The family of this 108-nucleotide RNA from Plutella xylostella is "mir-8517 microRNA precursor family". It scores 95 bits against the family's covariance model. Rfam links the family to the GO terms miRNA-mediated post-transcriptional gene silencing and RISC complex.
RNA sequence: UUAGAGGACAUUUUAACUGUUGAACUGUUUUGUCCCUCUCUGUCAAAUAACAAAUUGUUCGUUGUUAGAGAGGGACAAAACAGUUUAAUAGUUAAAACGUCCUCUAAC
Numbered sequence: 001u002u003a004g005a006g007g008a009c010a011u012u013u014u015a016a017c018u019g020u021u022g023a024a025c026u027g028u029u030u031u032g033u034c035c036c037u038c039u040c041u042g043u044c045a046a047a048u049a050a051c052a053a054a055u056u057g058u059u060c061g062u063u064g065u066u067a068g069a070g071a072g073g074g075a076c077a078a079a080a081c082a083g084u085u086u087a088a089u090a091g092u093u094a095a096a097a098c099g100u101c102c103u104c105u106a107a108c
Stems, first nucleotide, its partner, number of pairs: 001107006011097018029069004034064001049059004